[Rfam]
Ribosomal S15 leader: a 140-nucleotide RNA sequence from Parathalassolituus penaei.
RNA sequence: UCAUCCUACUGUUAAUGUGCACGGUAGCGAUGUCUUUUUAACAUCAGGUUUAUCCUGACGCACAUUCUUCGGAGUAAAUGAAGAUGGCAUUGUCUGCUGAAAAGAAAGCUGAGAUCGUAAAAGAGUUCCAAACUGUUGAA
Numbered sequence: 001u002c003a004u005c006c007u008a009c010u011g012u013u014a015a016u017g018u019g020c021a022c023g024g025u026a027g028c029g030a031u032g033u034c035u036u037u038u039u040a041a042c043a044u045c046a047g048g049u050u051u052a053u054c055c056u057g058a059c060g061c062a063c064a065u066u067c068u069u070c071g072g073a074g075u076a077a078a079u080g081a082a083g084a085u086g087g088c089a090u091u092g093u094c095u096g097c098u099g100a101a102a103a104g105a106a107a108g109c110u111g112a113g114a115u116c117g118u119a120a121a122a123g124a125g126u127u128c129c130a131a132a133c134u135g136u137u138g139a140a
Stems, first nucleotide, its partner, number of pairs: 007026006047094003071091002074088001
The literature on the family includes a 1996 paper in Biochimie by Benard et al., "Pseudoknot and translational control in the expression of the S15 ribosomal protein". Rfam links the family to the GO term regulation of translation, ncRNA-mediated. It scores 42 bits against the family's covariance model.